[Rfam]
RNA: c-di-GMP-II-GAG riboswitch aptamer
RNA sequence: CGCCGGAAGCAGUGCACUGAUCCGCACGGUCCUCACCGACGCCGUCCCCCACAGCUCGACCCAGGGGCAGCGCACGGAGACAGGACGGUCGCCAGACCGUGCGGGGAGCAAGUGGCGAGACCGAUGCGUCCGGUA
Numbered sequence: 001c002g003c004c005g006g007a008a009g010c011a012g013u014g015c016a017c018u019g020a021u022c023c024g025c026a027c028g029g030u031c032c033u034c035a036c037c038g039a040c041g042c043c044g045u046c047c048c049c050c051a052c053a054g055c056u057c058g059a060c061c062c063a064g065g066g067g068c069a070g071c072g073c074a075c076g077g078a079g080a081c082a083g084g085a086c087g088g089u090c091g092c093c094a095g096a097c098c099g100u101g102c103g104g105g106g107a108g109c110a111a112g113u114g115g116c117g118a119g120a121c122c123g124a125u126g127c128g129u130c131c132g133g134u135a
Stems, first nucleotide, its partner, number of pairs: 002134006009127003013110003022104008087122002089118005